[Rfam]
RNA sequence: CCUCGGCACCAGGGGUGCUUGUUCUGUGGUGGCCCUAGCUUUCUUUGCUAGAGCUUCUCACAAGAACAGGCUGAGAGAGUCCCUUCGCACCUGAACAGGAUAAUUCCUGCGUAGGGAGCGUGCCAGACUUCUUUU
Numbered sequence: 001c002c003u004c005g006g007c008a009c010c011a012g013g014g015g016u017g018c019u020u021g022u023u024c025u026g027u028g029g030u031g032g033c034c035c036u037a038g039c040u041u042u043c044u045u046u047g048c049u050a051g052a053g054c055u056u057c058u059c060a061c062a063a064g065a066a067c068a069g070g071c072u073g074a075g076a077g078a079g080u081c082c083c084u085u086c087g088c089a090c091c092u093g094a095a096c097a098g099g100a101u102a103a104u105u106c107c108u109g110c111g112u113a114g115g116g117a118g119c120g121u122g123c124c125a126g127a128c129u130u131c132u133u134u135u
Base pairs, nucleotide, nucleotide: 006123007122008121009120011084012083013082014081016078017071018070019069020068021067022066023065024064025063090115091114092113093112096109097108098107099106

The record is a 135-nucleotide RNA sequence, which matches "TPP riboswitch aptamer (THI element)" in Rfam. A search with the family's covariance model found it, with a score of 60 bits.